The record is a 138-nucleotide RNA from Certhia brachydactyla, which matches "Small nucleolar RNA SNORA8" in Rfam.
The family's RNA type in Rfam is H/ACA-box small nucleolar RNA.
The organism belongs to Certhia, within Eukaryota.
[Rfam]
RNA sequence: UGCAGUGUUACAGUACCUGCACCCAGCAGCCUUCUCCUGGUGUGAUGUUCAAAAAGCAGUGCUGCACCAGUGCAGCGUUUGGCAUCCUUGCUUUUCAUUCUGCUGUCUGUUAAACCUGGUGUUUUUGCUGAAACAGUC
Numbered sequence: 001u002g003c004a005g006u007g008u009u010a011c012a013g014u015a016c017c018u019g020c021a022c023c024c025a026g027c028a029g030c031c032u033u034c035u036c037c038u039g040g041u042g043u044g045a046u047g048u049u050c051a052a053a054a055a056g057c058a059g060u061g062c063u064g065c066a067c068c069a070g071u072g073c074a075g076c077g078u079u080u081g082g083c084a085u086c087c088u089u090g091c092u093u094u095u096c097a098u099u100c101u102g103c104u105g106u107c108u109g110u111u112a113a114a115c116c117u118g119g120u121g122u123u124u125u126u127g128c129u130g131a132a133a134c135a136g137u138c
Base pairs, nucleotide, nucleotide: 002062003061004060006058007057018053019048020047021046023044025041027039028038029037065127066126069123070122071121073118074117075116081107082106083105084104